[Rfam]
RNA sequence: CAAGUCCUCUGCCCGGUAAGGUGUAGCGAACCGCCGGGACCCUAAGUCUAGGGCGUCUGCUCGCGAGGGCAGGGGUUAAGCGUUGACAGGGGAACACACAGGCUCGGUAUUGAGCUUGCGAAAUCAAGGUUGGGAAUGCUGACCGUGUUGGCUGGUCGGGAAGGCAAAACUGCAAGCCACGUAAAACGCGAGUGGUGGGCAGGUUCCCCGGAGUCGCAGACCC
Numbered sequence: 001c002a003a004g005u006c007c008u009c010u011g012c013c014c015g016g017u018a019a020g021g022u023g024u025a026g027c028g029a030a031c032c033g034c035c036g037g038g039a040c041c042c043u044a045a046g047u048c049u050a051g052g053g054c055g056u057c058u059g060c061u062c063g064c065g066a067g068g069g070c071a072g073g074g075g076u077u078a079a080g081c082g083u084u085g086a087c088a089g090g091g092g093a094a095c096a097c098a099c100a101g102g103c104u105c106g107g108u109a110u111u112g113a114g115c116u117u118g119c120g121a122a123a124u125c126a127a128g129g130u131u132g133g134g135a136a137u138g139c140u141g142a143c144c145g146u147g148u149u150g151g152c153u154g155g156u157c158g159g160g161a162a163g164g165c166a167a168a169a170c171u172g173c174a175a176g177c178c179a180c181g182u183a184a185a186a187c188g189c190g191a192g193u194g195g196u197g198g199g200c201a202g203g204u205u206c207c208c209c210g211g212a213g214u215c216g217c218a219g220a221c222c223c
Stems, first nucleotide, its partner, number of pairs: 012038005020032003024191001026189002040092004046087003051081001052077003056073007112215001114214004119210002132208006138165003143159003170202004176196005
This 223-nucleotide RNA from Magnetovirga frankeli belongs to the Rfam family "Group II catalytic intron D1-D4-6". It scores 153 bits against the family's covariance model. Its family is annotated with Group II intron splicing in the Gene Ontology. Rfam's curators write: Group II introns are found in rRNA, tRNA and mRNA of organelles in fungi, plants and protists, and also in mRNA in bacteria.